[Rfam]
RNA: Metazoan signal recognition particle RNA
RNA sequence: ACCGGGAGCGCGGCGUCUCCUGUAAUCCGGCGACACGGAGGUCGGGAACGGAGGAUAGUUUGAGGUCGGGAGCUCUGGCGCGUGGACCCAUGUAGACUGGACGUCCGCAUUGAGCCCGGCAUCGGCAUGGGCAGCCCGGGGGAGUCCGGGCGGGCCAGGUUGACUAAGGAGGGGCGGACAGGGCCAGGGGGGAGACCCAGCAGCCAAGAGUCCCCGUGUCGGGCGGUAGUGGGACAGCGGCCGGGAGUGGGACUCACAGCGUCAGCCAGACCAACAUAACUAGACACCCUUCCUUU
Numbered sequence: 001a002c003c004g005g006g007a008g009c010g011c012g013g014c015g016u017c018u019c020c021u022g023u024a025a026u027c028c029g030g031c032g033a034c035a036c037g038g039a040g041g042u043c044g045g046g047a048a049c050g051g052a053g054g055a056u057a058g059u060u061u062g063a064g065g066u067c068g069g070g071a072g073c074u075c076u077g078g079c080g081c082g083u084g085g086a087c088c089c090a091u092g093u094a095g096a097c098u099g100g101a102c103g104u105c106c107g108c109a110u111u112g113a114g115c116c117c118g119g120c121a122u123c124g125g126c127a128u129g130g131g132c133a134g135c136c137c138g139g140g141g142g143a144g145u146c147c148g149g150g151c152g153g154g155c156c157a158g159g160u161u162g163a164c165u166a167a168g169g170a171g172g173g174g175c176g177g178a179c180a181g182g183g184c185c186a187g188g189g190g191g192g193a194g195a196c197c198c199a200g201c202a203g204c205c206a207a208g209a210g211u212c213c214c215c216g217u218g219u220c221g222g223g224c225g226g227u228a229g230u231g232g233g234a235c236a237g238c239g240g241c242c243g244g245g246a247g248u249g250g251g252a253c254u255c256a257c258a259g260c261g262u263c264a265g266c267c268a269g270a271c272c273a274a275c276a277u278a279a280c281u282a283g284a285c286a287c288c289c290u291u292c293c294u295u296u
Base pairs, nucleotide, nucleotide: 001042002041003040004021005020006019007018008017026039027038028037044294045293046292047291048290050288051287053285056282057281058280059279060278064272065271066270067269069267070266075265076264077263078262079261080260081259083256084255085253087251088250089249090248091247093245097244098243099242100241102239103238104237105233106232108231109230110229111228112227114224115223116222117221118220119219120218121217122216123162124161125160126159128157129156130155132153134151135150136149137148138147139146140145164168171214172213173212174211175210182205183204184203189198190197191196